[Rfam]
RNA sequence: UCACCACCACCAUCAUCCUGAUUAGUCUUUCAGGCUGUUGUGUGCUGGAAGACGUUUAAUAACUCUUCCGGUGGUGUGAAUACGAUAAAAAACCCUCGGAAGAUUUUCCGGGGGUUUUUUAUG
Numbered sequence: 001u002c003a004c005c006a007c008c009a010c011c012a013u014c015a016u017c018c019u020g021a022u023u024a025g026u027c028u029u030u031c032a033g034g035c036u037g038u039u040g041u042g043u044g045c046u047g048g049a050a051g052a053c054g055u056u057u058a059a060u061a062a063c064u065c066u067u068c069c070g071g072u073g074g075u076g077u078g079a080a081u082a083c084g085a086u087a088a089a090a091a092a093c094c095c096u097c098g099g100a101a102g103a104u105u106u107u108c109c110g111g112g113g114g115u116u117u118u119u120u121a122u123g
Stems, first nucleotide, its partner, number of pairs: 008044003011040002014037001017034005045071008087120015
This 123-nucleotide RNA from Xenorhabdus cabanillasii belongs to the Rfam family "Histidine operon leader".
Rfam describes the family as follows. At least 6 amino acid operons are known to be regulated by attenuation. In each a leader sequence of 150-200 bp is found upstream of the first gene in the operon.
Rfam classes the family as a cis-regulatory leader.
A search with the family's covariance model found it, with a score of 100 bits.
The family's consensus secondary structure is taken from published work.